[Rfam]
The record is a 72-nucleotide sequence from Marinilactibacillus sp. 15R, which matches "Fluoride riboswitch aptamer (crcB RNA motif)" in Rfam. Lineage of the source: Bacteria > Bacillati > Bacilli > Carnobacteriaceae > Marinilactibacillus. The match comes from Rfam's covariance-model search (36 bits).
RNA sequence: GUCUCAUAUGGGAAUGAAUGUCUCCCAAGGCGUAGCCUAAACUGCUGAAAAGCUGAUGACUUCUGUGAUGAA
Numbered sequence: 001g002u003c004u005c006a007u008a009u010g011g012g013a014a015u016g017a018a019u020g021u022c023u024c025c026c027a028a029g030g031c032g033u034a035g036c037c038u039a040a041a042c043u044g045c046u047g048a049a050a051a052g053c054u055g056a057u058g059a060c061u062u063c064u065g066u067g068a069u070g071a072a
Base pairs, nucleotide, nucleotide: 010026011025012024013023016063017062018061020060021059022058044053045052046051